RNA sequence: GGAUCGGGAGGCUGCCAUUGGGACGGCGGCCAUGAAUGGAUCCGGACCCGCUGUCUCGUAUGGGCAAGCUGCCGUGGCCCGCCGGCAGUCUUG
Number, nucleotide and partner (000 for none) at each position: 001g043002g042003a041004u040005c039006g000007g000008g000009a000010g031011g030012c029013u028014g027015c026016c025017a000018u000019u000020g000021g000022g000023a000024c000025g016026g015027c014028g013029g012030c011031c010032a000033u000034g000035a000036a000037u000038g000039g005040a004041u003042c002043c001044g000045g000046a000047c000048c000049c000050g000051c000052u000053g000054u000055c000056u000057c000058g000059u000060a000061u000062g000063g000064g000065c093066a092067a091068g090069c000070u087071g086072c085073c084074g083075u000076g000077g000078c000079c000080c000081g000082c000083c074084g073085g072086c071087a070088g000089u000090c068091u067092u066093g065

The family of this 93-nucleotide RNA sequence from Thalassococcus sp. S3 is "Rhodo-rpoB RNA". Rfam classes the family as a cis-regulatory element. The organism belongs to Thalassococcus, within Bacteria. Pairs were carried over by alignment from the consensus structure, which is taken from published work.